[Rfam]
This 77-nucleotide RNA sequence from Anopheles sinensis belongs to the Rfam family "mir-11 microRNA precursor family". Lineage of the source: Eukaryota > Bilateria > Endopterygota > Anopheles > Myzorhynchus. It scores 69 bits against the family's covariance model. The family is grouped with related families in Rfam's "mir-6 clan". Gene Ontology terms of the family: negative regulation of cell death, miRNA-mediated post-transcriptional gene silencing and RISC complex.
RNA sequence: AUAUCCGGCAGGAACUCGGUGCUGUGAUCUGUGUGGUUUUAAUAUUUCACAUCACAGUCUGAGUUCUUGCUCGAUGG
Numbered sequence: 001a002u003a004u005c006c007g008g009c010a011g012g013a014a015c016u017c018g019g020u021g022c023u024g025u026g027a028u029c030u031g032u033g034u035g036g037u038u039u040u041a042a043u044a045u046u047u048c049a050c051a052u053c054a055c056a057g058u059c060u061g062a063g064u065u066c067u068u069g070c071u072c073g074a075u076g077g
Stems, first nucleotide, its partner, number of pairs: 004074002009069009022057006031050003